[Rfam]
RNA sequence: CGCCGAACCUGCGGCAACCGCCGGGGACGGGGGAUCCACCGCAGUCUCGGGGUGGAUCGUGUCCGCCCACGCAGGGGGAACGCGACGGGCGACUUCCCGCCCGAACCCGUCAGCCAACUCGGUAGGCG
Numbered sequence: 001c002g003c004c005g006a007a008c009c010u011g012c013g014g015c016a017a018c019c020g021c022c023g024g025g026g027a028c029g030g031g032g033g034a035u036c037c038a039c040c041g042c043a044g045u046c047u048c049g050g051g052g053u054g055g056a057u058c059g060u061g062u063c064c065g066c067c068c069a070c071g072c073a074g075g076g077g078g079a080a081c082g083c084g085a086c087g088g089g090c091g092a093c094u095u096c097c098c099g100c101c102c103g104a105a106c107c108c109g110u111c112a113g114c115c116a117a118c119u120c121g122g123u124a125g126g127c128g
Stems, first nucleotide, its partner, number of pairs: 001128004008026003027123002030120003037049001050108003058084004087102004
c-di-AMP riboswitch aptamer (ydaO/yuaA leader): a 128-nucleotide RNA sequence from Modestobacter muralis.
Pairs were carried over by alignment from the consensus structure.
A search with the family's covariance model found it, with a score of 46 bits.